The record is a 224-nucleotide RNA sequence from Virgibacillus pantothenticus, which matches "Group II catalytic intron D1-D4-6" in Rfam. The organism belongs to Virgibacillus, within Bacteria. A search with the family's covariance model found it, with a score of 146 bits. Its family is annotated with Group II intron splicing in the Gene Ontology. On this family, see Bonen and Vogel, Trends Genet 2001: "The ins and outs of group II introns". Pairs were carried over by alignment from the consensus structure.

[Rfam]
RNA sequence: GAACUCCUGUUUGAUAAGGCUUUAACCAAGCCAUCAAUAGCGAGUCUUGGACUUCAACAAGUAAUUAUUGGAGUUAAGCGUAGACAGUUAGGUAAUAGGCCUGAAAGUGAUUGAGCUGCGUAAUAUGUUAAAACGGAGAGGUUGACAGUGUCGAAAGGCUGGAAAACCACACGAUAUAUACCGCUUUGGUAAGGUAUAUAGAGCCCUCUCGCAGUCGAAGAGCC
Numbered sequence: 001g002a003a004c005u006c007c008u009g010u011u012u013g014a015u016a017a018g019g020c021u022u023u024a025a026c027c028a029a030g031c032c033a034u035c036a037a038u039a040g041c042g043a044g045u046c047u048u049g050g051a052c053u054u055c056a057a058c059a060a061g062u063a064a065u066u067a068u069u070g071g072a073g074u075u076a077a078g079c080g081u082a083g084a085c086a087g088u089u090a091g092g093u094a095a096u097a098g099g100c101c102u103g104a105a106a107g108u109g110a111u112u113g114a115g116c117u118g119c120g121u122a123a124u125a126u127g128u129u130a131a132a133a134c135g136g137a138g139a140g141g142u143u144g145a146c147a148g149u150g151u152c153g154a155a156a157g158g159c160u161g162g163a164a165a166a167c168c169a170c171a172c173g174a175u176a177u178a179u180a181c182c183g184c185u186u187u188g189g190u191a192a193g194g195u196a197u198a199u200a201g202a203g204c205c206c207u208c209u210c211g212c213a214g215u216c217g218a219a220g221a222g223c224c
Stems, first nucleotide, its partner, number of pairs: 012036004019031004023192001025190002038090004044085004048080002050075008059066002112218001113216001115215006135209004140204001141167003146161004172203001175200008